[Rfam]
RNA sequence: AACAAAAAAAUGGGGUGCUCGCACAGGCGGGCUGAGAGUAAGCGGACGCUUUAACCCGGAACCUGAUUUGGAUAAUGCCAACGUAGGGAGAUAAUGGAUCACAAGUG
Numbered sequence: 001a002a003c004a005a006a007a008a009a010a011u012g013g014g015g016u017g018c019u020c021g022c023a024c025a026g027g028c029g030g031g032c033u034g035a036g037a038g039u040a041a042g043c044g045g046a047c048g049c050u051u052u053a054a055c056c057c058g059g060a061a062c063c064u065g066a067u068u069u070g071g072a073u074a075a076u077g078c079c080a081a082c083g084u085a086g087g088g089a090g091a092u093a094a095u096g097g098a099u100c101a102c103a104a105g106u107g
Base pairs, nucleotide, nucleotide: 006095009092011058012057013056014055017032018031019030020029021028040051041050042049043048062087063086064085065084068081069080070079071078